[Rfam]
RNA sequence: UAGUUUAUUUAGAGCAAAUCUUCAUUUAGUUACCACAAAUCCAUAUUUGAUUGUUCAAAAAUACUCAUUAUCGCAAGUUUGAUCACAUUAUUGUAAUUGAAAAGAUGACGACAACUACUAUAUGAAUAAUAUUUUUUUAAAAU
Dot-bracket structure: ...((((....(.(....(....((.(((((.................................................................................)))))..))...)....).).....))))..
The family of this 143-nucleotide RNA from Salix dunnii is "MIR480 microRNA precursor family". It scores 82 bits against the family's covariance model. The family has 69 seed sequences and 3,070 matches in Rfam 15.1. Its family is annotated with RISC complex and miRNA-mediated post-transcriptional gene silencing in the Gene Ontology. Taxonomically the source falls in Salix (Eukaryota, Embryophyta, Mesangiospermae, eudicotyledons).